This 174-nucleotide sequence from Alkalibaculum bacchi belongs to the Rfam family "6S / SsrS RNA".
By type it is a non-coding RNA gene.
The literature on the family includes a 2000 paper in Cell by Wassarman and Storz, "6S RNA regulates E. coli RNA polymerase activity".
Rfam describes the family as follows. E. coli 6S RNA was the first non coding RNA to be sequenced, but its function was unknown until recently.
The base pairs follow the family's consensus structure, which is taken from published work.
[Rfam]
RNA sequence: AAUCACCUGAGAUGUGCGAAUCCCUGCUAUUUUGAACCUAUAUUAUAAUUCAGGGAAGUCAAUACUUUAAUCAGCUGGCAAGCCGUAAUAGGCGGACGUCAAAAAAUUAGAUGCGAUUACCCACCUAGCAGAGCUAGGCGUCAAAAUUGUAGGAUACGGCAUUUUGGGAUAGUU
Numbered sequence: 001a002a003u004c005a006c007c008u009g010a011g012a013u014g015u016g017c018g019a020a021u022c023c024c025u026g027c028u029a030u031u032u033u034g035a036a037c038c039u040a041u042a043u044u045a046u047a048a049u050u051c052a053g054g055g056a057a058g059u060c061a062a063u064a065c066u067u068u069a070a071u072c073a074g075c076u077g078g079c080a081a082g083c084c085g086u087a088a089u090a091g092g093c094g095g096a097c098g099u100c101a102a103a104a105a106a107u108u109a110g111a112u113g114c115g116a117u118u119a120c121c122c123a124c125c126u127a128g129c130a131g132a133g134c135u136a137g138g139c140g141u142c143a144a145a146a147u148u149g150u151a152g153g154a155u156a157c158g159g160c161a162u163u164u165u166g167g168g169a170u171a172g173u174u
Stems, first nucleotide, its partner, number of pairs: 003171001006168010017158002029147007037138002053122003057118004064112001066111006078099002083095004